RNA sequence: UAGAGAAGUCAAUGAUGGUUAUACCCAUGAUGUCUGAACCUGUCUGAAGCAUCUCACUGAUGAAAUCUGUGUGGUUCUGAGACUUCUCUAUGA
Number, nucleotide and partner (000 for none) at each position: 001u000002a000003g000004a087005g086006a085007a084008g083009u082010c081011a000012a000013u000014g000015a000016u000017g000018g000019u000020u000021a000022u000023a000024c000025c000026c000027a000028u000029g000030a000031u000032g000033u000034c000035u000036g000037a000038a000039c000040c000041u000042g000043u000044c000045u000046g000047a000048a000049g000050c000051a000052u000053c000054u000055c000056a000057c000058u000059g000060a000061u000062g000063a000064a000065a000066u000067c000068u000069g000070u000071g000072u000073g000074g000075u000076u000077c000078u000079g000080a000081g010082a009083c008084u007085u006086c005087u004088c000089u000090a000091u000092g000093a000

Shown here is a 93-nucleotide sequence from Castor canadensis, a member of the family "Small nucleolar RNA SNORD91 family". Its family is annotated with RNA processing and nucleolus in the Gene Ontology. NCBI's taxonomy places the organism under Eukaryota, Vertebrata, Gnathostomata, Sarcopterygii, Castor.